Rfam assigns this 69-nucleotide RNA from Hermetia illucens to the family "mir-252 microRNA precursor family". NCBI's taxonomy places the organism under Eukaryota, Dicondylia, Eumetabola, Brachycera, Hermetia. The literature on the family includes a 2009 paper in BMC Genomics by Li et al., "Direct sequencing and expression analysis of a large number of miRNAs in Aedes aegypti and a multi-species survey of novel mosquito miRNAs". Its Rfam clan is "mir-252 microRNA precursor family".

[Rfam]
Nucleotides: 069
Base pairs, nucleotide, nucleotide: 001069002068003067004066005065006064007063010060011059012058013057014056015055016054017053019051024046025045026044027043028042030040
Number, partner (000 for none) and nucleotide at each position: 001069a002068u003067u004066c005065u006064u007063u008000u009000c010060u011059a012058a013057g014056u015055a016054c017053u018000a019051g020000u021000g022000c023000c024046g025045c026044a027043g028042g029000a030040g031000a032000u033000a034000u035000u036000u037000a038000a039000a040030c041000c042028c043027c044026u045025g046024c047000u048000g049000c050000c051019c052000a053017a054016g055015u056014g057013c058012u059011u060010a061000u062000c063007a064006a065005a066004g067003a068002g069001u
It scores 72 bits against the family's covariance model.